About this RNA: Rfam assigns this 131-nucleotide sequence from Ciceribacter lividus to the family "Alphaproteobacterial sRNA ar35". On this family, see del Val et al., RNA Biol 2012: "A survey of sRNA families in alpha-proteobacteria". It is annotated as a small RNA. The pairing is the family consensus, mapped onto this sequence. Lineage of the source: Bacteria > Pseudomonadota > Alphaproteobacteria > Rhizobiaceae > Ciceribacter. A search with the family's covariance model found it, with a score of 48 bits.
RNA sequence: AUGAGGUCGGUCGGCGCAAGUUGAACGCGCCGAGAAGCGAGGCAUCACCCAUUUCCGGUCCUGACCACGGAUGUACUGGCAGGACCGGUGAAAUGGAAGAAAAGGUCGGGUCGUCCCCGGCCUUUUGCUUU
Numbered sequence: 001a002u003g004a005g006g007u008c009g010g011u012c013g014g015c016g017c018a019a020g021u022u023g024a025a026c027g028c029g030c031c032g033a034g035a036a037g038c039g040a041g042g043c044a045u046c047a048c049c050c051a052u053u054u055c056c057g058g059u060c061c062u063g064a065c066c067a068c069g070g071a072u073g074u075a076c077u078g079g080c081a082g083g084a085c086c087g088g089u090g091a092a093a094u095g096g097a098a099g100a101a102a103a104g105g106u107c108g109g110g111u112c113g114u115c116c117c118c119g120g121c122c123u124u125u126u127g128c129u130u131u
Stems, first nucleotide, its partner, number of pairs: 003046002006043001007040002012032005049096007058085006065079003097130003100126010